[Rfam]
RNA sequence: GAGUUAUAGAGAAGAGGGGAGAGAACAGGCUCCGUGAACCUCUGGCAACCCUCCGCUGUUUGGCGGAAACGGUGCCAAUACCUGUUCCCCGCAAGGGGAAGCUUAUAAUUG
Numbered sequence: 001g002a003g004u005u006a007u008a009g010a011g012a013a014g015a016g017g018g019g020a021g022a023g024a025a026c027a028g029g030c031u032c033c034g035u036g037a038a039c040c041u042c043u044g045g046c047a048a049c050c051c052u053c054c055g056c057u058g059u060u061u062g063g064c065g066g067a068a069a070c071g072g073u074g075c076c077a078a079u080a081c082c083u084g085u086u087c088c089c090c091g092c093a094a095g096g097g098g099a100a101g102c103u104u105a106u107a108a109u110u111g
Base pairs, nucleotide, nucleotide: 002110003109004108005107006106007105008104013043014042015041016040017039021032022031023030026084027083028082029081044076045075046074047073049072050071052067053066054065080103085100086099087098088097089096090095
RNA: SAM riboswitch aptamer (S box leader)
Organism: Lentimicrobium saccharophilum